RNA sequence: GGAGUUGACUGGGUAGUCGCUGCUUUGUUGAUGUCCUUCGGGAGACUGACGCUGAAGUCCUUUGGGAGACUGGCGUUGACGUCCUUCGGGAGACUGACAAAGGGGAGGAAAGUCCGGGCUCCAUAGAGCAGGGUGCCAGGUAACGCCUGGGGGGCGCAAGCCCACGACAAGUGCAGCAGAGAGAAGACCGCCGAUGGCCUCAUUUCUUCGGAAGGGGCACAGGUAAGGGUGAAAGGGUGCGGUAAGAGCGCACCGGACGGCUAGCAAUAGUCCGUUGCAGGGUAAACUCCACCCGGAGCAAGACCAAAUAGGCCUCCACAUUGCGUUGCUCGCGUAAGGAGGCGGGUAGGUUGCUUGAGCCAGUGAGCGAUUGCUGGCCUAGACGAAUGGCUACUACCGCGCAAGCGGAACAGAACCCGGCUUAUAUGUCGACUCCACCU
Numbered sequence: 001g002g003a004g005u006u007g008a009c010u011g012g013g014u015a016g017u018c019g020c021u022g023c024u025u026u027g028u029u030g031a032u033g034u035c036c037u038u039c040g041g042g043a044g045a046c047u048g049a050c051g052c053u054g055a056a057g058u059c060c061u062u063u064g065g066g067a068g069a070c071u072g073g074c075g076u077u078g079a080c081g082u083c084c085u086u087c088g089g090g091a092g093a094c095u096g097a098c099a100a101a102g103g104g105g106a107g108g109a110a111a112g113u114c115c116g117g118g119c120u121c122c123a124u125a126g127a128g129c130a131g132g133g134u135g136c137c138a139g140g141u142a143a144c145g146c147c148u149g150g151g152g153g154g155c156g157c158a159a160g161c162c163c164a165c166g167a168c169a170a171g172u173g174c175a176g177c178a179g180a181g182a183g184a185a186g187a188c189c190g191c192c193g194a195u196g197g198c199c200u201c202a203u204u205u206c207u208u209c210g211g212a213a214g215g216g217g218c219a220c221a222g223g224u225a226a227g228g229g230u231g232a233a234a235g236g237g238u239g240c241g242g243u244a245a246g247a248g249c250g251c252a253c254c255g256g257a258c259g260g261c262u263a264g265c266a267a268u269a270g271u272c273c274g275u276u277g278c279a280g281g282g283u284a285a286a287c288u289c290c291a292c293c294c295g296g297a298g299c300a301a302g303a304c305c306a307a308a309u310a311g312g313c314c315u316c317c318a319c320a321u322u323g324c325g326u327u328g329c330u331c332g333c334g335u336a337a338g339g340a341g342g343c344g345g346g347u348a349g350g351u352u353g354c355u356u357g358a359g360c361c362a363g364u365g366a367g368c369g370a371u372u373g374c375u376g377g378c379c380u381a382g383a384c385g386a387a388u389g390g391c392u393a394c395u396a397c398c399g400c401g402c403a404a405g406c407g408g409a410a411c412a413g414a415a416c417c418c419g420g421c422u423u424a425u426a427u428g429u430c431g432a433c434u435c436c437a438c439c440u
Stems, first nucleotide, its partner, number of pairs: 001436009011425001012395007020105002023102008110423003114420005119298004126331004131294005136150005151165001152163004166289002171287002173283002188228002190224003195219002198216003236254006255278001256276005261270003302352004312343006322336005359378008
Dot-bracket structure: (((((((((.((((((((.((.((((((((................................................................)))))))).))....[[[.[[[[[((((...[[[[.((((((((((.....)))))(((((....)))).)((...((((.............(((((..((.(((.............))).))..)))..)).......((((((.......))))))(((((((((....))).))))).)...))..)))))))))))))...((((......((((((....(((((.]]]]))))).)))))).....))))......((((((((....))))))))..........)))))))....................]]]]]]]].)..)))))))))....